Notes
Rfam assigns this 115-nucleotide sequence from Novosphingobium olei to the family "ALIL pseudoknot". Lineage of the source: Bacteria > Pseudomonadati > Alphaproteobacteria > Sphingomonadaceae > Novosphingobium. Pairs were carried over by alignment from the consensus structure, which is taken from published work. On this family, see Mazauric et al., J Biol Chem 2008: "Apical loop-internal loop RNA pseudoknots: a new type of stimulator of -1 translational frameshifting in bacteria". It scores 86 bits against the family's covariance model. Its family is annotated with positive regulation of translational frameshifting in the Gene Ontology.
RNA sequence: GGCAUAUUUUGCAAUGGCGGAGCUCGACCGCCGCGAGAGAUGAUGAUGGCGUUCGUCGACGUCCAUCGCGAGGACCUGGGUAUCGAGCCGAUCUGCCGCGAACUGGCAAUCGCCC
Numbered sequence: 001g002g003c004a005u006a007u008u009u010u011g012c013a014a015u016g017g018c019g020g021a022g023c024u025c026g027a028c029c030g031c032c033g034c035g036a037g038a039g040a041u042g043a044u045g046a047u048g049g050c051g052u053u054c055g056u057c058g059a060c061g062u063c064c065a066u067c068g069c070g071a072g073g074a075c076c077u078g079g080g081u082a083u084c085g086a087g088c089c090g091a092u093c094u095g096c097c098g099c100g101a102a103c104u105g106g107c108a109a110u111c112g113c114c115c
Stems, first nucleotide, its partner, number of pairs: 016032005078115003089112002092109001094108005